Rfam assigns this 53-nucleotide RNA to the family "eL15-Euryarchaeota ribosomal protein leader". Rfam's curators put it in the seed alignment.
[Rfam]
RNA sequence: CCUGCGUGUGCAGGUCGGGAUGUGACCCCGUUCCGUGAGGGUUGAACCACACA
Numbered sequence: 001c002c003u004g005c006g007u008g009u010g011c012a013g014g015u016c017g018g019g020a021u022g023u024g025a026c027c028c029c030g031u032u033c034c035g036u037g038a039g040g041g042u043u044g045a046a047c048c049a050c051a052c053a
Stems, first nucleotide, its partner, number of pairs: 001014005017048002024043005